[Rfam]
Nucleotides: 127
Stems, first nucleotide, its partner, number of pairs: 008081005014028004030051002033048004053076007100124003104120006
Number, partner (000 for none) and nucleotide at each position: 001000u002000a003000u004000a005000g006000g007000g008081g009080u010079u011078g012077g013000u014028u015027g016026g017025c018000u019000a020000u021000g022000u023000a024000u025017g026016c027015c028014a029000c030051g031050c032000a033048c034047a035046u036045c037000u038000u039000u040000u041000a042000a043000u044000u045036g046035a047034u048033g049000g050031g051030c052000a053076c054075u055074g056073u057072a058071u059070g060000g061000u062000u063000a064000u065000c066000a067000a068000g069000a070059c071058a072057u073056a074055u075054g076053g077012c078011c079010g080009a081008c082000a083000u084000a085000a086000u087000u088000u089000a090000u091000g092000g093000a094000u095000c096000u097000u098000a099000u100124a101123g102122g103000u104120u105119u106118g107117g108116c109115u110000u111000g112000c113000c114000u115109g116108g117107c118106u119105a120104a121000c122102c123101c124100u125000c126000u127000u
Rfam assigns this 127-nucleotide RNA sequence from Dendrobium nobile to the family "U11 spliceosomal RNA". The family has 72 seed sequences and 2,595 matches in Rfam 15.1. The organism belongs to Dendrobium, within Eukaryota. Pairs were carried over by alignment from the consensus structure, which is taken from published work. A reference for the family is Montzka and Steitz (1988), "Additional low-abundance human small nuclear ribonucleoproteins: U11, U12, etc", Proc Natl Acad Sci U S A. Rfam classes the family as a spliceosomal small nuclear RNA. Its family is annotated with U11 snRNP, pre-mRNA 5'-splice site binding and mRNA 5'-splice site recognition in the Gene Ontology.